[Rfam]
RNA sequence: ACUGGAAAGUGUAGCGUCUUUCUGUAAGCAGAGUUGCAGUCUAUAAAAGGACGGAUUCAUCUGUUGAUGGAAUCACGGUAUAUUCAACACUUUGUCGAAAUCAGUGUCUUCCAGAGUCUGGUGUCAACAUUCGAGCUCGGGCGUAGGCCUGAGUUGGGAGGUUGUUCAAUACUGGGGAACCGCCCGAGGGUAGCAAUACAGCAGGGAAAACUCAGAGCACUGGCACGGCUGUAAGAUAGCACGGUGGAGAAGUGAUUGAAUAUACUACCAUUGCGGGUGGGAACUACCUUUUU
Numbered sequence: 001a002c003u004g005g006a007a008a009g010u011g012u013a014g015c016g017u018c019u020u021u022c023u024g025u026a027a028g029c030a031g032a033g034u035u036g037c038a039g040u041c042u043a044u045a046a047a048a049g050g051a052c053g054g055a056u057u058c059a060u061c062u063g064u065u066g067a068u069g070g071a072a073u074c075a076c077g078g079u080a081u082a083u084u085c086a087a088c089a090c091u092u093u094g095u096c097g098a099a100a101u102c103a104g105u106g107u108c109u110u111c112c113a114g115a116g117u118c119u120g121g122u123g124u125c126a127a128c129a130u131u132c133g134a135g136c137u138c139g140g141g142c143g144u145a146g147g148c149c150u151g152a153g154u155u156g157g158g159a160g161g162u163u164g165u166u167c168a169a170u171a172c173u174g175g176g177g178a179a180c181c182g183c184c185c186g187a188g189g190g191u192a193g194c195a196a197u198a199c200a201g202c203a204g205g206g207a208a209a210a211c212u213c214a215g216a217g218c219a220c221u222g223g224c225a226c227g228g229c230u231g232u233a234a235g236a237u238a239g240c241a242c243g244g245u246g247g248a249g250a251a252g253u254g255a256u257u258g259a260a261u262a263u264a265c266u267a268c269c270a271u272u273g274c275g276g277g278u279g280g281g282a283a284c285u286a287c288c289u290u291u292u293u
Base pairs, nucleotide, nucleotide: 001040002039003038004023005022006021007020008019009018028037029036030035045292046291047290048289049288050287054285056283057282058281060279061276062275063274065273066272067271068270069269070268077266078265079264080263081262082261083260084259085258086257087256089253090252091251092250093249095247100245101244102243104242105241106240107239108235109234110233112231113230114229116226117225118223119222120221121220122219123218124217125164126163127162128161130159131158132157134155135154136153137152138151139150140149141148142147165171172215173214174213175212176211183206184205185204190199191198192197

The family of this 293-nucleotide sequence from Rhizopus delemar is "Metazoan signal recognition particle RNA". The match comes from Rfam's covariance-model search (131 bits). Gene Ontology terms of the family: SRP-dependent cotranslational protein targeting to membrane, signal sequence recognition and signal recognition particle, endoplasmic reticulum targeting. Rfam's curators write: The signal recognition particle (SRP) is a universally conserved ribonucleoprotein. It is involved in the co-translational targeting of proteins to membranes. The eukaryotic SRP consists of a 300-nucleotide 7S RNA and six proteins: SRPs 72, 68, 54, 19, 14, and 9. Archaeal SRP consists of a 7S RNA and homologues of the eukaryotic SRP19 and SRP54 proteins. Rfam 15.1 lists 383,523 matches to the family in 1,221 species.